[Rfam]
RNA sequence: GCGCUUAGAGCAGUGCUCUGCACAUAGUAAGCACUUAACAACAUUAUUAUUAGUAUUAUUAACAAACACCAACAUUAUCAUUAUUACUACCGAGUGAAUGAUUGCACGAAUGUGUGUGUGCGCAGAGGGGUCUGCGAGCGAGUCCAGGCGACCCCGGCCCCUCCCGCCCCUACACGCUUGAUCUUAUUUGAUCGGGCCACGGCCCCCGCCCCGCCGGGCCGGCCCGAAGUGAGAAGCCCCCCCUCCUGCGAAGCCCCCCGGGGCGCUGUGCAGCGAGGCCCAUCCAGGCGGAGGCCGCCCCGGUGCCAGGCCCGGGACCGGCCGCUCAGGAGUGAUGAGUCGAUCAGAUAGACGAGGCCAAGGCCCCCGGCCCGGCCCGUGAGUUGCGAGGCGAUUCUGACCUGA
Numbered sequence: 001g002c003g004c005u006u007a008g009a010g011c012a013g014u015g016c017u018c019u020g021c022a023c024a025u026a027g028u029a030a031g032c033a034c035u036u037a038a039c040a041a042c043a044u045u046a047u048u049a050u051u052a053g054u055a056u057u058a059u060u061a062a063c064a065a066a067c068a069c070c071a072a073c074a075u076u077a078u079c080a081u082u083a084u085u086a087c088u089a090c091c092g093a094g095u096g097a098a099u100g101a102u103u104g105c106a107c108g109a110a111u112g113u114g115u116g117u118g119u120g121c122g123c124a125g126a127g128g129g130g131u132c133u134g135c136g137a138g139c140g141a142g143u144c145c146a147g148g149c150g151a152c153c154c155c156g157g158c159c160c161c162u163c164c165c166g167c168c169c170c171u172a173c174a175c176g177c178u179u180g181a182u183c184u185u186a187u188u189u190g191a192u193c194g195g196g197c198c199a200c201g202g203c204c205c206c207c208g209c210c211c212c213g214c215c216g217g218g219c220c221g222g223c224c225c226g227a228a229g230u231g232a233g234a235a236g237c238c239c240c241c242c243c244u245c246c247u248g249c250g251a252a253g254c255c256c257c258c259c260g261g262g263g264c265g266c267u268g269u270g271c272a273g274c275g276a277g278g279c280c281c282a283u284c285c286a287g288g289c290g291g292a293g294g295c296c297g298c299c300c301c302g303g304u305g306c307c308a309g310g311c312c313c314g315g316g317a318c319c320g321g322c323c324g325c326u327c328a329g330g331a332g333u334g335a336u337g338a339g340u341c342g343a344u345c346a347g348a349u350a351g352a353c354g355a356g357g358c359c360a361a362g363g364c365c366c367c368c369g370g371c372c373c374g375g376c377c378c379g380u381g382a383g384u385u386g387c388g389a390g391g392c393g394a395u396u397c398u399g400a401c402c403u404g405a
Stems, first nucleotide, its partner, number of pairs: 015159001092107001094105004111146002115142001117140003121136002187235003192227004197222002201219001204218003208214002257316006263307001265306002271302001273300001275298001277296004281291001327404004337397006356377004362372002
Small Cajal body-specific RNA 2: a 405-nucleotide RNA from Ornithorhynchus anatinus. Taxonomically the source falls in Ornithorhynchus (Eukaryota, Opisthokonta, Bilateria, Gnathostomata). Rfam 15.1 lists 612 matches to the family in 498 species.